[Rfam]
This 86-nucleotide RNA from Ethanoligenens harbinense belongs to the Rfam family "ZMP/ZTP riboswitch aptamer (pfl RNA motif)". Pairs were carried over by alignment from the consensus structure, which is taken from published work. The source organism's lineage runs through Bacteria, Clostridia, Eubacteriales, Oscillospiraceae and Ethanoligenens harbinense.

RNA sequence: UCAGGCUCUUAUGACUGACGGAAUUGUGGAGCACACCACAAGGGAGUAAAAGCCUGCUGAAAUUGCCGACCGUCUGGGCAGCAUUU
Numbered sequence: 001u002c003a004g005g006c007u008c009u010u011a012u013g014a015c016u017g018a019c020g021g022a023a024u025u026g027u028g029g030a031g032c033a034c035a036c037c038a039c040a041a042g043g044g045a046g047u048a049a050a051a052g053c054c055u056g057c058u059g060a061a062a063u064u065g066c067c068g069a070c071c072g073u074c075u076g077g078g079c080a081g082c083a084u085u086u
Stems, first nucleotide, its partner, number of pairs: 003055005009049004015043002017074005026039004063081005